Annotation:
The family of this 64-nucleotide RNA sequence from Glaciimonas sp. PCH181 is "Betaproteobacteria toxic small RNA". On this family, see Sass et al., Sci Rep 2017: "Identification of small RNAs abundant in Burkholderia cenocepacia biofilms reveal putative regulators with a potential role in carbon and iron metabolism". A search with the family's covariance model found it, with a score of 59 bits. NCBI's taxonomy places the organism under Bacteria, Betaproteobacteria, Burkholderiales, Oxalobacteraceae, Glaciimonas.
RNA sequence: UGUCUCCUCCGCUCUCCUCGUAGUGCGGAUUCCACCCGGAACCACGAUGUUUCGGGUUUUUUUU
Dot-bracket structure: .......(((((.(........).)))))....((((((((........)))))))).......